[Rfam]
RNA sequence: GCCUUGAUGGCUCAGUGGUAAAGCGCCUCACUAGUAAUGAGGAGAUCAAGAGUUCGAUUCUCUUUCGAGGCA
Numbered sequence: 001g002c003c004u005u006g007a008u009g010g011c012u013c014a015g016u017g018g019u020a021a022a023g024c025g026c027c028u029c030a031c032u033a034g035u036a037a038u039g040a041g042g043a044g045a046u047c048a049a050g051a052g053u054u055c056g057a058u059u060c061u062c063u064u065u066c067g068a069g070g071c072a
Stems, first nucleotide, its partner, number of pairs: 001071007010024003026042005048064005

This 72-nucleotide sequence from Colletotrichum musicola belongs to the Rfam family "tRNA". The family's consensus secondary structure is taken from published work. The source organism's lineage runs through Eukaryota, Fungi, Dikarya, leotiomyceta and Colletotrichum orchidearum species complex. A search with the family's covariance model found it, with a score of 66 bits.